[Rfam]
RNA: Small nucleolar RNA U3
RNA sequence: AAGACUAUACUUUCAGGGAUCAUUUCUAUAGUUUGUUACUAGAGAAGUUUCUCUGACUGUGUAGAGCACCCGAAACCACGAGGAGGAGACAGAGUGUCCUUUCCUGAGCGUGAAGCCGGCUUUUAGUGCUGCAUUUUGCAACUGCUAUCUGCCAUUGAUGAUCGUUCUCAACUCUCUUGAGGGUUGAGAGGGAGAGGACACAGUCUGAGUGGU
Numbered sequence: 001a002a003g004a005c006u007a008u009a010c011u012u013u014c015a016g017g018g019a020u021c022a023u024u025u026c027u028a029u030a031g032u033u034u035g036u037u038a039c040u041a042g043a044g045a046a047g048u049u050u051c052u053c054u055g056a057c058u059g060u061g062u063a064g065a066g067c068a069c070c071c072g073a074a075a076c077c078a079c080g081a082g083g084a085g086g087a088g089a090c091a092g093a094g095u096g097u098c099c100u101u102u103c104c105u106g107a108g109c110g111u112g113a114a115g116c117c118g119g120c121u122u123u124u125a126g127u128g129c130u131g132c133a134u135u136u137u138g139c140a141a142c143u144g145c146u147a148u149c150u151g152c153c154a155u156u157g158a159u160g161a162u163c164g165u166u167c168u169c170a171a172c173u174c175u176c177u178u179g180a181g182g183g184u185u186g187a188g189a190g191g192g193a194g195a196g197g198a199c200a201c202a203g204u205c206u207g208a209g210u211g212g213u
Stems, first nucleotide, its partner, number of pairs: 002040002006035002009032003015027004049065002054061001075213005094201012108165003118153003124147004128142001130140003168187008